[Rfam]
RNA: M-box riboswitch aptamer (ykoK leader)
Organism: Trichococcus palustris
RNA sequence: UAAUAUUUCCGGUAGGUAAGGCUACUACAGGGAUACGGAUUGCUGCCGCGAAAUGGUGGAGACACCAUGAGAAGGUUUGAACAGGCGAUAUCGAAACCAAGGUAUCAUCUAAUGCAAUUUCAUCGCCCUGCAGAGCUAAAGCUCAAACGGUGGCAUCAGUG
Dot-bracket structure: ......(.(((.[.(((..(((..((.(((((......(((((.(((.......((((....)))).......))).......((.(..(((.......])))..).))....))))).......))))).)).)))...)))....)...)).)......